Notes:
This 104-nucleotide sequence from Aquilegia coerulea belongs to the Rfam family "Small nucleolar RNA Z279/snoR105/snoR108". The literature on the family includes a 2002 paper in Curr Biol by Marker et al., "Experimental RNomics: identification of 140 candidates for small non-messenger RNAs in the plant Arabidopsis thaliana".
[Rfam]
RNA sequence: GGGAUGUGAUGAGUGGUCAAAACUCACAAAUAUUUGUGAGAGGGGUGUCCGCCCAAGCCAGGUUACGACACUGGGGCACCCCCUAUUUUUACCUAUCUGAUCCC
Numbered sequence: 001g002g003g004a005u006g007u008g009a010u011g012a013g014u015g016g017u018c019a020a021a022a023c024u025c026a027c028a029a030a031u032a033u034u035u036g037u038g039a040g041a042g043g044g045g046u047g048u049c050c051g052c053c054c055a056a057g058c059c060a061g062g063u064u065a066c067g068a069c070a071c072u073g074g075g076g077c078a079c080c081c082c083c084u085a086u087u088u089u090u091a092c093c094u095a096u097c098u099g100a101u102c103c104c
Base pairs, nucleotide, nucleotide: 001104002103003102004101015093016092017091023040024039025038026037027036042082043081044080045079046078047077048076049075062072
Lineage of the source: Eukaryota > Tracheophyta > Euphyllophyta > Mesangiospermae > Aquilegia. This family includes the plant snoRNAs known as Z279, snoR105 and snoR108. The match comes from Rfam's covariance-model search (81 bits). The family is grouped with related families in Rfam's "snoU13 clan". Rfam links the family to the GO terms RNA processing and nucleolus. Rfam 15.1 lists 906 matches to the family in 223 species.